[Rfam]
RNA sequence: CGUCACACAGUGGGAGAGCGUCGAUUUUUCGACCGCCGAAGGCGCAAUUCGCCCGAAAUCGCUCAGGCACCCCGUACCGCUCGUGUGUUG
Numbered sequence: 001c002g003u004c005a006c007a008c009a010g011u012g013g014g015a016g017a018g019c020g021u022c023g024a025u026u027u028u029u030c031g032a033c034c035g036c037c038g039a040a041g042g043c044g045c046a047a048u049u050c051g052c053c054c055g056a057a058a059u060c061g062c063u064c065a066g067g068c069a070c071c072c073c074g075u076a077c078c079g080c081u082c083g084u085g086u087g088u089u090g
Stems, first nucleotide, its partner, number of pairs: 006085003009081005020033004035068003038064002042062003048056002
RNA: Glycine riboswitch aptamer
Organism: Pusillimonas sp. ANT_WB101